Background
This 69-nucleotide RNA sequence from Salmo trutta belongs to the Rfam family "mir-29 microRNA precursor family". Its family is annotated with RISC complex and gene silencing by miRNA in the Gene Ontology. On this family, see Ambros, Cell 2001: "microRNAs: tiny regulators with great potential". The match comes from Rfam's covariance-model search (59 bits). Lineage of the source: Eukaryota > Deuterostomia > Actinopterygii > Euteleosteomorpha > Salmo. This family represents the microRNA (miRNA) precursors mir-29.
RNA sequence: AGAAGCUGGUUCCCUAUGGUGUUUUAGAUGUGUGUUCUCUGUUCUAGCACCAUAUGAAAUCAGUGUUCU
Numbered sequence: 001a002g003a004a005g006c007u008g009g010u011u012c013c014c015u016a017u018g019g020u021g022u023u024u025u026a027g028a029u030g031u032g033u034g035u036u037c038u039c040u041g042u043u044c045u046a047g048c049a050c051c052a053u054a055u056g057a058a059a060u061c062a063g064u065g066u067u068c069u
Base pairs, nucleotide, nucleotide: 001069002068003067004066005064006063007062008061009060010059011058013056016053017052018051019050020049021048025046026045027044028043